Shown here is a 58-nucleotide RNA sequence from Streptomyces jumonjinensis, a member of the family "msiK RNA".
RNA sequence: CUACACCAAUCCUUUACUCGGAUCGUCCGGCACGUUCCUGCCGGUGAGGGGACACACA
Numbered sequence: 001c002u003a004c005a006c007c008a009a010u011c012c013u014u015u016a017c018u019c020g021g022a023u024c025g026u027c028c029g030g031c032a033c034g035u036u037c038c039u040g041c042c043g044g045u046g047a048g049g050g051g052a053c054a055c056a057c058a
Stems, first nucleotide, its partner, number of pairs: 010051007027044006
NCBI's taxonomy places the organism under Bacteria, Bacillati, Kitasatosporales, Streptomycetaceae, Streptomyces.